[Rfam]
RNA: Small nucleolar RNA SNORD111
RNA sequence: UAGCCUGAAGUGAUGAGCUUAGUUCAUGUCUCUUCUCUGAUAUUUGCACUGGAGACACUCCAAAGACUCUGAUCAGGCAG
Numbered sequence: 001u002a003g004c005c006u007g008a009a010g011u012g013a014u015g016a017g018c019u020u021a022g023u024u025c026a027u028g029u030c031u032c033u034u035c036u037c038u039g040a041u042a043u044u045u046g047c048a049c050u051g052g053a054g055a056c057a058c059u060c061c062a063a064a065g066a067c068u069c070u071g072a073u074c075a076g077g078c079a080g
Stems, first nucleotide, its partner, number of pairs: 001080001003078003